[Rfam]
Background
The family of this 140-nucleotide RNA sequence from Plasmodium falciparum is "Plasmodium RNA of unknown function RUF6-5". Pairs were carried over by alignment from the consensus structure, which was predicted with WAR. The organism belongs to Plasmodium falciparum, within Eukaryota. Rfam's curators put it in the seed alignment.
RNA sequence: GUUGUCCCAAUGAUCCAGUGGGAAGGUAUGUAAGUUUUCUUUGAAGUGACACAGGUUCGAUUCCGCGUCCUUGAGUUUCUGAGAUAAAAAGUUGCAGGCCAAGAUACUGAAGAUUCGUUCGGAAUGGGCAACACCAUUUU
Numbered sequence: 001g002u003u004g005u006c007c008c009a010a011u012g013a014u015c016c017a018g019u020g021g022g023a024a025g026g027u028a029u030g031u032a033a034g035u036u037u038u039c040u041u042u043g044a045a046g047u048g049a050c051a052c053a054g055g056u057u058c059g060a061u062u063c064c065g066c067g068u069c070c071u072u073g074a075g076u077u078u079c080u081g082a083g084a085u086a087a088a089a090a091g092u093u094g095c096a097g098g099c100c101a102a103g104a105u106a107c108u109g110a111a112g113a114u115u116c117g118u119u120c121g122g123a124a125u126g127g128g129c130a131a132c133a134c135c136a137u138u139u140u
Stems, first nucleotide, its partner, number of pairs: 001132007010118004016109004025100003029096005036090003040086001041084002045080002048077001052073004058065002119124001